Source information: This 95-nucleotide sequence from Microctonus aethiopoides belongs to the Rfam family "mir-210 microRNA precursor family". The source organism's lineage runs through Eukaryota, Opisthokonta, Ecdysozoa, Arthropoda and Microctonus. Rfam links the family to the GO terms miRNA-mediated post-transcriptional gene silencing and RISC complex.
RNA sequence: GUGGGCCUUAAUGCAGCUGCUGGCCACUGCACAAGAUUAGACAUAAGACUCUUGUGCGUGUGACAGCGGCUAUGAUGGGGCUUCUUUCUUACAUC
Numbered sequence: 001g002u003g004g005g006c007c008u009u010a011a012u013g014c015a016g017c018u019g020c021u022g023g024c025c026a027c028u029g030c031a032c033a034a035g036a037u038u039a040g041a042c043a044u045a046a047g048a049c050u051c052u053u054g055u056g057c058g059u060g061u062g063a064c065a066g067c068g069g070c071u072a073u074g075a076u077g078g079g080g081c082u083u084c085u086u087u088c089u090u091a092c093a094u095c
Stems, first nucleotide, its partner, number of pairs: 005081006012074001015071008024062001025060002028058006035051002